The family of this 165-nucleotide RNA from Enterococcus hermanniensis is "M-box riboswitch aptamer (ykoK leader)". The source organism's lineage runs through Bacteria, Bacillati, Bacillota, Bacilli and Enterococcus. The base pairs follow the family's consensus structure. M-box riboswitch, also know as ykoK leader is described as a metaloregulatory RNA that sense divalent metals and function as a genetic control element of genes related to divalent metal transport in bacteria. It was first reported upstream of the B.subtilis ykoK gene and genes with related functions in other bacteria.

[Rfam]
RNA sequence: UUAAAUAAUUGUUAGGUGAGGCUCCUAUAUGGACACAGGCUACUGCCCAAAAAUGUCGAGAGACGCCAAUGGGUAGAACAGGGAUCAUCGUGAAGGUGAUUCAUAACGUAGCUGACAAAUUCUGUCUACGCCCUAUAGUGCUAAAGCUCGACGAUGAACAUCGAU
Numbered sequence: 001u002u003a004a005a006u007a008a009u010u011g012u013u014a015g016g017u018g019a020g021g022c023u024c025c026u027a028u029a030u031g032g033a034c035a036c037a038g039g040c041u042a043c044u045g046c047c048c049a050a051a052a053a054u055g056u057c058g059a060g061a062g063a064c065g066c067c068a069a070u071g072g073g074u075a076g077a078a079c080a081g082g083g084a085u086c087a088u089c090g091u092g093a094a095g096g097u098g099a100u101u102c103a104u105a106a107c108g109u110a111g112c113u114g115a116c117a118a119a120u121u122c123u124g125u126c127u128a129c130g131c132c133c134u135a136u137a138g139u140g141c142u143a144a145a146g147c148u149c150g151a152c153g154a155u156g157a158a159c160a161u162c163g164a165u
Base pairs, nucleotide, nucleotide: 005161006160009157010156011152012151013094015148016147017146020142021141022140025138026137027136028135029134031132032131039112040111041110042109043108045074046073047072048071049070054065055064056063057062082102083101084100087097088096089095114126115125116124